[Rfam]
RNA: glmS glucosamine-6-phosphate activated ribozyme aptamer
Organism: Clostridium tetanomorphum
RNA sequence: AUAUAAAUAAAAGCGCCAGGACUUAAGUGAUAGAAAAAACUCAACCUGACAGUUGAGUAAGUUCCACUAACCAAAUCGAAGAUUUGGAGUAAUGAAGGAAACUCAACCUGACGGUUGAGUAAGUUCCACUAAUCAAAUCGAAGAUUUGGAGUGUCACUUAAGUUGACGAGGAUGGGGAGUAUCGAAUCUUCGGCGGGUGCCCCACGGUAUCGCACUACCGUUAACGAUUGAUAAAACUGGAAAGUGAUUUUCAGCACAAUAUCAAUCUGGUGUUAAAA
Number, nucleotide and partner (000 for none) at each position: 001a000002u000003a000004u000005a000006a000007a000008u000009a000010a000011a000012a000013g000014c000015g000016c000017c000018a000019g000020g164021a163022c162023u161024u160025a159026a158027g157028u000029g155030a154031u153032a152033g000034a000035a000036a000037a000038a000039a000040c000041u000042c000043a000044a000045c000046c000047u000048g000049a000050c000051a000052g000053u000054u000055g000056a000057g000058u000059a000060a000061g000062u000063u000064c000065c000066a000067c000068u000069a000070a000071c000072c000073a000074a000075a000076u000077c000078g000079a000080a000081g000082a000083u000084u000085u000086g000087g000088a000089g000090u000091a000092a000093u000094g000095a000096a000097g000098g000099a000100a000101a000102c000103u000104c000105a000106a000107c000108c000109u000110g000111a000112c000113g000114g000115u000116u000117g000118a000119g000120u000121a000122a000123g000124u000125u000126c000127c000128a000129c000130u000131a000132a000133u000134c000135a000136a000137a000138u000139c000140g000141a000142a000143g000144a000145u000146u000147u000148g000149g000150a000151g000152u032153g031154u030155c029156a000157c027158u026159u025160a024161a023162g022163u021164u020165g000166a000167c000168g000169a000170g000171g000172a000173u204174g203175g202176g201177g200178a000179g000180u000181a000182u193183c192184g191185a190186a000187u000188c000189u000190u185191c184192g183193g182194c000195g000196g000197g000198u000199g000200c177201c176202c175203c174204a173205c220206g219207g218208u217209a216210u000211c000212g000213c000214a000215c000216u209217a208218c207219c206220g205221u000222u000223a000224a000225c000226g267227a266228u265229u264230g263231a000232u000233a000234a000235a000236a000237c254238u253239g252240g251241a250242a249243a248244g000245u000246g000247a000248u243249u242250u241251u240252c239253a238254g237255c000256a000257c000258a000259a000260u000261a000262u000263c230264a229265a228266u227267c226268u000269g000270g000271u000272g000273u000274u000275a000276a000277a000278a000